RNA sequence: GGUUGCUUAGCUCAGUUGGGAGAGCACUACCUCGACAAGGUAGGGGUCACUGGUUCGAGCCCAGUAGCGACCA
Numbered sequence: 001g002g003u004u005g006c007u008u009a010g011c012u013c014a015g016u017u018g019g020g021a022g023a024g025c026a027c028u029a030c031c032u033c034g035a036c037a038a039g040g041u042a043g044g045g046g047u048c049a050c051u052g053g054u055u056c057g058a059g060c061c062c063a064g065u066a067g068c069g070a071c072c073a
Stems, first nucleotide, its partner, number of pairs: 001072007010025004027043005049065005